[Rfam]
RNA sequence: AUGACGAGACCACUCACGCACGGCAGGAGCGGGGGACCCAGGUAAGUCGCCGGGCCGGACGUCGUACGACGCACCGGAACGGCUUGGGGUGAAGUUGCGCUCGCAAGGGCGCGGCCGGGCACCUCCCAGCCCGAACCCGACAGCUCACCUCGCAGGCGAAGGAGAGGAACA
Dot-bracket structure: .((.(....((..............)).((((((....(((((......................................)))))(((.....((((((........))))))..((((........))))...))).........)))))).).)).............